[Rfam]
RNA sequence: AGAUCUGAGAGUGGCCUAGCUGUGACAUUUAUCACCCCAUUGAUCACCAGGGUUGAUGUAGCUGAUCUGCCUGGCUAGGCAGGUGUCCCCUUUCUCCCUCACAGCUCCAUGUGUGUUCCUCCCAAAGCUGUGUGCUUGGUUGAAGAGAACGAUCAUCCCUGAUGAAAGAGGACUGAUCUUCACUCAAGGGUGUACGAAUAGCUGCACUCCCUAUUAGAACCUCCAAACAAGCUCUCAAAAUUAAUUCGUAGGAGAACAUAGGGUAGUCAAGCUUCCAAGACUCCAGACACAUCUGAAUGAGGCACUGCAUGUGGCAGUCUGCCUUUCUUU
Numbered sequence: 001a002g003a004u005c006u007g008a009g010a011g012u013g014g015c016c017u018a019g020c021u022g023u024g025a026c027a028u029u030u031a032u033c034a035c036c037c038c039a040u041u042g043a044u045c046a047c048c049a050g051g052g053u054u055g056a057u058g059u060a061g062c063u064g065a066u067c068u069g070c071c072u073g074g075c076u077a078g079g080c081a082g083g084u085g086u087c088c089c090c091u092u093u094c095u096c097c098c099u100c101a102c103a104g105c106u107c108c109a110u111g112u113g114u115g116u117u118c119c120u121c122c123c124a125a126a127g128c129u130g131u132g133u134g135c136u137u138g139g140u141u142g143a144a145g146a147g148a149a150c151g152a153u154c155a156u157c158c159c160u161g162a163u164g165a166a167a168g169a170g171g172a173c174u175g176a177u178c179u180u181c182a183c184u185c186a187a188g189g190g191u192g193u194a195c196g197a198a199u200a201g202c203u204g205c206a207c208u209c210c211c212u213a214u215u216a217g218a219a220c221c222u223c224c225a226a227a228c229a230a231g232c233u234c235u236c237a238a239a240a241u242u243a244a245u246u247c248g249u250a251g252g253a254g255a256a257c258a259u260a261g262g263g264u265a266g267u268c269a270a271g272c273u274u275c276c277a278a279g280a281c282u283c284c285a286g287a288c289a290c291a292u293c294u295g296a297a298u299g300a301g302g303c304a305c306u307g308c309a310u311g312u313g314g315c316a317g318u319c320u321g322c323c324u325u326u327c328u329u330u
Stems, first nucleotide, its partner, number of pairs: 002107002006101004011096001013093002019089001024087007032079002035074002038069002042067004047061001116171002118168001120166001122139004127135002140162003147158001149156001201272003207266002209263006221254004227249002230246002295330003299325005304318005
RNA: 7SK RNA